[Rfam]
RNA sequence: AUACUUAAACCUGGCAGGGGAGAUACCAUGAUCACACAGGUAGUGUCCCCACGGUGAGGCUUAUCCAUUGUACUCUGGAUGUGCUUACCCCUGCGAUUUCCCCAAAUGGGGGAAACUCAGCUGCAUACUUUGUGAGGACUGCAUUUGCAUUUUCCCC
Numbered sequence: 001a002u003a004c005u006u007a008a009a010c011c012u013g014g015c016a017g018g019g020g021a022g023a024u025a026c027c028a029u030g031a032u033c034a035c036a037c038a039g040g041u042a043g044u045g046u047c048c049c050c051a052c053g054g055u056g057a058g059g060c061u062u063a064u065c066c067a068u069u070g071u072a073c074u075c076u077g078g079a080u081g082u083g084c085u086u087a088c089c090c091c092u093g094c095g096a097u098u099u100c101c102c103c104a105a106a107u108g109g110g111g112g113a114a115a116c117u118c119a120g121c122u123g124c125a126u127a128c129u130u131u132g133u134g135a136g137g138a139c140u141g142c143a144u145u146u147g148c149a150u151u152u153u154c155c156c157c
Base pairs, nucleotide, nucleotide: 014124015123016122017121018050019049020048022046025044026043028041029040051092053090054089056088058085059084060083062081063080064079065078066077095118096117097115098113099112101111102110134154135153136152138151140149141148142147
Source information: The family of this 157-nucleotide sequence from Otolemur garnettii is "U1 spliceosomal RNA". The literature on the family includes a 1990 paper in Proc Natl Acad Sci U S A by Kretzner et al., "Saccharomyces cerevisiae U1 small nuclear RNA secondary structure contains both universal and yeast-specific domains". By type it is a spliceosomal small nuclear RNA. It scores 92 bits against the family's covariance model.